[Rfam]
RNA sequence: GAAAAAGCAAAUUUGAGUUGCAUUUUCAAACAGUGCUUUAUAAAGUUUAGAAAAUUGAAAUGCAUCAUUAUUGGGUGAACCUCUGUGAUGUUAAUGGCUUAUGGUUCAGUAAAUGGUGGAACAUAC
Numbered sequence: 001g002a003a004a005a006a007g008c009a010a011a012u013u014u015g016a017g018u019u020g021c022a023u024u025u026u027c028a029a030a031c032a033g034u035g036c037u038u039u040a041u042a043a044a045g046u047u048u049a050g051a052a053a054a055u056u057g058a059a060a061u062g063c064a065u066c067a068u069u070a071u072u073g074g075g076u077g078a079a080c081c082u083c084u085g086u087g088a089u090g091u092u093a094a095u096g097g098c099u100u101a102u103g104g105u106u107c108a109g110u111a112a113a114u115g116g117u118g119g120a121a122c123a124u125a126c
Stems, first nucleotide, its partner, number of pairs: 005047002013033003063118007076108006
Dot-bracket structure: ....((......(((...............)))............))...............(((((((......((((((.....................))))))...)))))))........